Source information: The family of this 112-nucleotide sequence from Macaca mulatta is "Y RNA". The organism belongs to Macaca, within Eukaryota.

RNA sequence: AGCUGGUCUGAAGGUAGUGAGUUAUCGCAUUGAAUGUUCACAGUCAGUUACAGAUUGAACCCCUUGUUCUACCCUUUUCCCCCUCCUCACUGCUGCACUUGACUAGCCUUAC
Dot-bracket structure: .(((((((.((..((((((((.....................(..((.....................))..)............))))))...))..))))))))).....
Numbered sequence: 001a002g003c004u005g006g007u008c009u010g011a012a013g014g015u016a017g018u019g020a021g022u023u024a025u026c027g028c029a030u031u032g033a034a035u036g037u038u039c040a041c042a043g044u045c046a047g048u049u050a051c052a053g054a055u056u057g058a059a060c061c062c063c064u065u066g067u068u069c070u071a072c073c074c075u076u077u078u079c080c081c082c083c084u085c086c087u088c089a090c091u092g093c094u095g096c097a098c099u100u101g102a103c104u105a106g107c108c109u110u111a112c
Stems, first nucleotide, its partner, number of pairs: 002107007010100002014096002016091006043073001046070002
A search with the family's covariance model found it, with a score of 78 bits. Rfam describes the family as follows. Y RNAs are components of the Ro ribonucleoprotein particle (Ro RNP), in association with Ro60 and La proteins. The Y RNAs and Ro60 and La proteins are well conserved, but the function of the Ro RNP is not known. In humans the RNA component can be one of four small RNAs -- hY1, hY3, hY4 and hY5. These small RNAs are predicted to fold into a conserved secondary structure containing three stem structures. The largest of the four, hY1, contains an additional hairpin. This family includes a significant number of annotated pseudogenes and the model is expected to discriminate poorly between real and Y RNA related pseudogenes. The base pairs follow the family's consensus structure, which is taken from published work. The family's RNA type in Rfam is non-coding RNA gene.